[Rfam]
RNA sequence: UAAAAAGGAACAUCGACUAAGAUCCGCCACGUCCUGUGGCGAACGUCGACGUCAGCGCAUCCUGCGCA
Numbered sequence: 001u002a003a004a005a006a007g008g009a010a011c012a013u014c015g016a017c018u019a020a021g022a023u024c025c026g027c028c029a030c031g032u033c034c035u036g037u038g039g040c041g042a043a044c045g046u047c048g049a050c051g052u053c054a055g056c057g058c059a060u061c062c063u064g065c066g067c068a
Base pairs, nucleotide, nucleotide: 011051013049014048015047016046017045026040027039028038029037030036055067056066057065058064
Dot-bracket structure: ..........(.(((((........(((((.....)))))....))))).)...((((.....)))).